The record is a 204-nucleotide sequence from Nannospalax galili, which matches "Connexin-43 internal ribosome entry site (IRES)" in Rfam. About the family: This family represents the connexin-43 internal ribosome entry site (IRES) which allows cap independent translation during conditions such as heat shock and stress. The family's consensus secondary structure is taken from published work. Its family is annotated with ribosome binding in the Gene Ontology. The family has 14 seed sequences and 657 matches in Rfam 15.1. The organism belongs to Nannospalax, within Eukaryota. For this family Rfam cites "Connexin43 mRNA contains a functional internal ribosome entry site" (Schiavi et al., FEBS Lett, 1999).
RNA sequence: GGCUUUGACAAGGUGUCAGCACCUUUCUUUCAUUAAGGGGAAGGCAUGAGGAAAGUACCAAAUGGCAGCAGACUUUUAAACUUUAAAUAGACAGUUCUGAGGGCUGGAGCUUGCCUUUUCAUUUGACUUCAUCCUCCAAGGAGUUCUACCACUUUGGUGCACCUAUUUCACUUCCAUUAAGUGAGUGAGAGUUGCCCAGGUGAC
Numbered sequence: 001g002g003c004u005u006u007g008a009c010a011a012g013g014u015g016u017c018a019g020c021a022c023c024u025u026u027c028u029u030u031c032a033u034u035a036a037g038g039g040g041a042a043g044g045c046a047u048g049a050g051g052a053a054a055g056u057a058c059c060a061a062a063u064g065g066c067a068g069c070a071g072a073c074u075u076u077u078a079a080a081c082u083u084u085a086a087a088u089a090g091a092c093a094g095u096u097c098u099g100a101g102g103g104c105u106g107g108a109g110c111u112u113g114c115c116u117u118u119u120c121a122u123u124u125g126a127c128u129u130c131a132u133c134c135u136c137c138a139a140g141g142a143g144u145u146c147u148a149c150c151a152c153u154u155u156g157g158u159g160c161a162c163c164u165a166u167u168u169c170a171c172u173u174c175c176a177u178u179a180a181g182u183g184a185g186u187g188a189g190a191g192u193u194g195c196c197c198a199g200g201u202g203a204c
Stems, first nucleotide, its partner, number of pairs: 002020003008014002029143003033139002037135003040130004048123002051120001053119003070098003074094002099114001101112003153200005159195003163191001166187001168185001169183005